[Rfam]
RNA sequence: GUACUUACCUGGCAGGGGAGAUACUAUGAUCACAAAGGUGGUUUUCCCAAAGCAAGACAUCCGUCGUAUUUUGGAUGUGCUGACUCCUGUGAUUUCCCCAAAUGUGGGAAACUCGACUGCAUAAUUUGUGGUAGUGGGGGAAUGUGUUCAUGCUUCCCCCCA
Numbered sequence: 001g002u003a004c005u006u007a008c009c010u011g012g013c014a015g016g017g018g019a020g021a022u023a024c025u026a027u028g029a030u031c032a033c034a035a036a037g038g039u040g041g042u043u044u045u046c047c048c049a050a051a052g053c054a055a056g057a058c059a060u061c062c063g064u065c066g067u068a069u070u071u072u073g074g075a076u077g078u079g080c081u082g083a084c085u086c087c088u089g090u091g092a093u094u095u096c097c098c099c100a101a102a103u104g105u106g107g108g109a110a111a112c113u114c115g116a117c118u119g120c121a122u123a124a125u126u127u128g129u130g131g132u133a134g135u136g137g138g139g140g141a142a143u144g145u146g147u148u149c150a151u152g153c154u155u156c157c158c159c160c161c162a
Base pairs, nucleotide, nucleotide: 012120013119014118015117016048017047018046019045020044021043023042024041025040026039027038049088050085052084054081058077059076060075061074062073090115091114092113093111094110095109097107098106136161137160138159139158140157144153145152146151
Rfam assigns this 162-nucleotide RNA from Camelus dromedarius to the family "U1 spliceosomal RNA". Rfam describes the family as follows. U1 is a small nuclear RNA (snRNA) component of the spliceosome (involved in pre-mRNA splicing). Its 5' end forms complementary base pairs with the 5' splice junction, thus defining the 5' donor site of an intron. There are significant differences in sequence and secondary structure between metazoan and yeast U1 snRNAs, the latter being much longer (568 nucleotides as compared to 164 nucleotides in human). Nevertheless, secondary structure predictions suggest that all U1 snRNAs share a 'common core' consisting of helices I, II, the proximal region of III, and IV. This family does not contain the larger yeast sequences. It is annotated as a spliceosomal small nuclear RNA. The base pairs follow the family's consensus structure, which is taken from published work. Rfam links the family to the GO terms mRNA 5'-splice site recognition, U1 snRNP and pre-mRNA 5'-splice site binding. It scores 117 bits against the family's covariance model.